Shown here is a 168-nucleotide sequence from Cupriavidus basilensis, a member of the family "Group II catalytic intron D1-D4-3".
The organism belongs to Cupriavidus, within Bacteria.
The pairing is the family consensus, mapped onto this sequence.
It scores 72 bits against the family's covariance model.
[Rfam]
RNA sequence: CCCCGGGCGACCGGGGGGCUGAAGGAAGCCCGAGGCAACGCGCUGGCCUGACGAACAGGAAGCGGAUACGGGGCGACGCAUCGGGGUAAGGCAGAAAAGGCCAAAGCCAGGUGCUUGCACGGAACGAUGCGGCGUAAAGCACUUGUGGUUCGGUCGGCAGCAAUGUGC
Numbered sequence: 001c002c003c004c005g006g007g008c009g010a011c012c013g014g015g016g017g018g019c020u021g022a023a024g025g026a027a028g029c030c031c032g033a034g035g036c037a038a039c040g041c042g043c044u045g046g047c048c049u050g051a052c053g054a055a056c057a058g059g060a061a062g063c064g065g066a067u068a069c070g071g072g073g074c075g076a077c078g079c080a081u082c083g084g085g086g087u088a089a090g091g092c093a094g095a096a097a098a099g100g101c102c103a104a105a106g107c108c109a110g111g112u113g114c115u116u117g118c119a120c121g122g123a124a125c126g127a128u129g130c131g132g133c134g135u136a137a138a139g140c141a142c143u144u145g146u147g148g149u150u151c152g153g154u155c156g157g158c159a160g161c162a163a164u165g166u167g168c
Stems, first nucleotide, its partner, number of pairs: 001016006028168002031165002035161002040155001043152001045151001046149003062144001064142001065140001067138001073135003077131007085108003090102003
Dot-bracket structure: ((((((....))))))...........((.((..((...(..(.((((.............(.((.(.....(((.(((((((.(((..(((.......)))...)))................))))))).)))..).).).)..))).))..)....))..)).))